[Rfam]
RNA: Small nucleolar RNA snoR2/U65
Organism: Abrus precatorius
RNA sequence: GGUUCAAUGCCACGUCGCUGGUAGCUAACUGUGCAAUGACCAGCGAUGCUAUGAUUGGACCAAAAGCAAGAGUUAAUUGUUUCGCAUCUUGAUAGGAAUCCGUGGAGUCGUUACUCAUUUCAUUUACGGAGCCGUUUUCUGCGAUUACAUUU
Number, nucleotide and partner (000 for none) at each position: 001g000002g060003u059004u058005c057006a056007a055008u054009g052010c000011c000012a000013c048014g047015u046016c045017g044018c043019u000020g041021g040022u039023a000024g034025c033026u000027a000028a000029c000030u000031g000032u000033g025034c024035a000036a000037u000038g000039a022040c021041c020042a000043g018044c017045g016046a015047u014048g013049c000050u000051a000052u009053g000054a008055u007056u006057g005058g004059a003060c002061c000062a000063a000064a000065a000066g000067c000068a000069a000070g000071a000072g000073u000074u000075a000076a000077u000078u000079g000080u000081u000082u144083c143084g142085c141086a140087u000088c000089u000090u000091g000092a000093u000094a000095g133096g132097a000098a000099u000100c129101c128102g127103u000104g125105g124106a123107g000108u000109c000110g000111u000112u000113a000114c000115u000116c000117a000118u000119u000120u000121c000122a000123u106124u105125u104126a000127c102128g101129g100130a000131g000132c096133c095134g000135u000136u000137u000138u000139c000140u086141g085142c084143g083144a082145u000146u000147a000148c000149a000150u000151u000152u000